[Rfam]
RNA sequence: AAUUGAUAAAGGCAAAUCCAUCGAAAGGUGGAGACGCAAAGCCGCAAGUCUAAAGCAAGAAAUUGCCAUGAUCGUUGGGUUGCCAAG
Numbered sequence: 001a002a003u004u005g006a007u008a009a010a011g012g013c014a015a016a017u018c019c020a021u022c023g024a025a026a027g028g029u030g031g032a033g034a035c036g037c038a039a040a041g042c043c044g045c046a047a048g049u050c051u052a053a054a055g056c057a058a059g060a061a062a063u064u065g066c067c068a069u070g071a072u073c074g075u076u077g078g079g080u081u082g083c084c085a086a087g
Stems, first nucleotide, its partner, number of pairs: 012037002017032006040081004045077003048072003055066004

The record is an 87-nucleotide sequence from Desulfosporosinus youngiae, which matches "c-di-GMP-I riboswitch aptamer" in Rfam. Its family is annotated with cyclic-di-GMP binding in the Gene Ontology. Rfam 15.1 lists 5,092 matches to the family in 1,772 species.